[Rfam]
Nucleotides: 188
Stems, first nucleotide, its partner, number of pairs: 006106005018031004070097003074093002114179004124174005132166004
Number, partner (000 for none) and nucleotide at each position: 001000g002000u003000u004000c005000g006106g007105c008104g009103g010102a011000a012000a013000u014000c015000c016000g017000u018031c019030a020029g021028c022000u023000a024000u025000a026000a027000c028021g029020c030019u031018g032000u033000c034000a035000a036000g037000a038000a039000a040000a041000c042000c043000c044000c045000a046000a047000a048000a049000c050000c051000g052000u053000a054000a055000a056000a057000u058000g059000a060000g061000a062000g063000c064000a065000a066000u067000u068000c069000g070097c071096c072095u073000g074093g075092u076000u077000c078000c079000u080000c081000u082000u083000u084000a085000a086000a087000g088000u089000c090000a091000a092075a093074c094000c095072a096071g097070g098000a099000g100000g101000c102010u103009c104008c105007g106006c107000c108000g109000g110000a111000c112000u113000a114179g115178a116177g117176g118000u119000c120000g121000a122000a123000a124174a125173g126172g127171a128170c129000u130000g131000a132166g133165u134164a135163a136000a137000a138000u139000a140000c141000u142000g143000c144000a145000u146000u147000u148000g149000a150000g151000a152000g153000u154000u155000u156000c157000u158000c159000u160000c161000c162000a163135u164134u165133g166132c167000a168000a169000a170128g171127u172126c173125c174124u175000c176117c177116c178115u179114c180000u181000c182000u183000u184000c185000u186000u187000u188000u
Shown here is a 188-nucleotide sequence from Stylonychia lemnae, a member of the family "Ciliate telomerase RNA". NCBI's taxonomy places the organism under Eukaryota, Intramacronucleata, Spirotrichea, Stichotrichia, Stylonychia. On this family, see He et al., Nature 2021: "Structures of telomerase at several steps of telomere repeat synthesis". By type it is a non-coding RNA gene. Rfam describes the family as follows. Telomerase is a ribonucleoprotein reverse transcriptase that synthesises telomeric DNA. Telomerase RNAs differ greatly in sequence and structure between vertebrates, ciliates and yeasts, but they share a 5' pseudoknot structure close to the template sequence.